[Rfam]
RNA: permuted transfer-messenger RNA
Organism: Prochlorococcus sp. AG-402-N21
RNA sequence: GGUGGUUCAAACCAGUGUCUCGGACAGCGGUUCGAUUCCGCUCAGCUCCAUAAAUUUUUUUGGGGCUGCAAUGGUUUCGACGGGGCAUAAGGAGAAUGACUGAAGCCUGCUCGGUACGAGCAAACACAUAAACGCUAACAAAAUCGUUAGUUUCUCUCGUCAGCCAGCACUUGUUGCAGCCUGA
Numbered sequence: 001g002g003u004g005g006u007u008c009a010a011a012c013c014a015g016u017g018u019c020u021c022g023g024a025c026a027g028c029g030g031u032u033c034g035a036u037u038c039c040g041c042u043c044a045g046c047u048c049c050a051u052a053a054a055u056u057u058u059u060u061u062g063g064g065g066c067u068g069c070a071a072u073g074g075u076u077u078c079g080a081c082g083g084g085g086c087a088u089a090a091g092g093a094g095a096a097u098g099a100c101u102g103a104a105g106c107c108u109g110c111u112c113g114g115u116a117c118g119a120g121c122a123a124a125c126a127c128a129u130a131a132a133c134g135c136u137a138a139c140a141a142a143a144u145c146g147u148u149a150g151u152u153u154c155u156c157u158c159g160u161c162a163g164c165c166a167g168c169a170c171u172u173g174u175u176g177c178a179g180c181c182u183g184a
Stems, first nucleotide, its partner, number of pairs: 001101003005097001016087003020083003026042005043068007